[Rfam]
Notes:
The record is a 417-nucleotide RNA from Phrynocephalus forsythii, which matches "Vertebrate telomerase RNA" in Rfam. The family is grouped with related families in Rfam's "Telomerase clan". The organism belongs to Phrynocephalus, within Eukaryota. By type it is a non-coding RNA gene. The family has 37 seed sequences and 523 matches in Rfam 15.1. Pairs were carried over by alignment from the consensus structure, which is taken from published work. It scores 117 bits against the family's covariance model. Telomerase is a ribonucleoprotein reverse transcriptase that synthesises telomeric DNA. Telomerase RNAs differ greatly in sequence and structure between vertebrates, ciliates and yeasts, but they share a 5' pseudoknot structure close to the template sequence. Vertebrate telomerase RNAs have a 3' H/ACA snoRNA-like domain.

RNA sequence: CGGCGAGAGGCCUCCUCUUCUUCUAUUUUCUAACCCUAAUUUUCCGCGGCCGGCGGUUCCAUCAAUCUCGCUGUUUUAUUCGCUGGCUUUCAGCGCACUCAAAACUUUUUGAGGAAAACAAUAAAACGCCAGCUGGAAGCAGGGGUGGCCUUUCCUCCUACCGACGCCGCACCUCAGCCGCCGCUCCCUUCCUCUUCGGAGGCCACCUGCUUUCCCCUCUGAAGCCGCGGUCAGCGUGGCCGCUGCCGCAAAGGGUUUGUCCCUGUGGCUUCUCAGGGGCGGCGGGCCUGGCCGAAGAAGUCUAGGGAGAGGUCCCUGGCCUGAGGCGGGCGCCAGAACAAACUCGGGCGACAUUUUCCCUCGACCCCCGCGCGCUCCUGAGUUGUGGGGCGCGCGUUUGGCGUCGCCCGGACACCA
Numbered sequence: 001c002g003g004c005g006a007g008a009g010g011c012c013u014c015c016u017c018u019u020c021u022u023c024u025a026u027u028u029u030c031u032a033a034c035c036c037u038a039a040u041u042u043u044c045c046g047c048g049g050c051c052g053g054c055g056g057u058u059c060c061a062u063c064a065a066u067c068u069c070g071c072u073g074u075u076u077u078a079u080u081c082g083c084u085g086g087c088u089u090u091c092a093g094c095g096c097a098c099u100c101a102a103a104a105c106u107u108u109u110u111g112a113g114g115a116a117a118a119c120a121a122u123a124a125a126a127c128g129c130c131a132g133c134u135g136g137a138a139g140c141a142g143g144g145g146u147g148g149c150c151u152u153u154c155c156u157c158c159u160a161c162c163g164a165c166g167c168c169g170c171a172c173c174u175c176a177g178c179c180g181c182c183g184c185u186c187c188c189u190u191c192c193u194c195u196u197c198g199g200a201g202g203c204c205a206c207c208u209g210c211u212u213u214c215c216c217c218u219c220u221g222a223a224g225c226c227g228c229g230g231u232c233a234g235c236g237u238g239g240c241c242g243c244u245g246c247c248g249c250a251a252a253g254g255g256u257u258u259g260u261c262c263c264u265g266u267g268g269c270u271u272c273u274c275a276g277g278g279g280c281g282g283c284g285g286g287c288c289u290g291g292c293c294g295a296a297g298a299a300g301u302c303u304a305g306g307g308a309g310a311g312g313u314c315c316c317u318g319g320c321c322u323g324a325g326g327c328g329g330g331c332g333c334c335a336g337a338a339c340a341a342a343c344u345c346g347g348g349c350g351a352c353a354u355u356u357u358c359c360c361u362c363g364a365c366c367c368c369c370g371c372g373c374g375c376u377c378c379u380g381a382g383u384u385g386u387g388g389g390g391c392g393c394g395c396g397u398u399u400g401g402c403g404u405c406g407c408c409c410g411g412a413c414a415c416c417a
Stems, first nucleotide, its partner, number of pairs: 002157002005154008014145002017142002020139002055106004065099001069095005082133006088126003179332004183327002191300001193298007206286006214279005227249004232245004252264004346409007354401002369396004375390004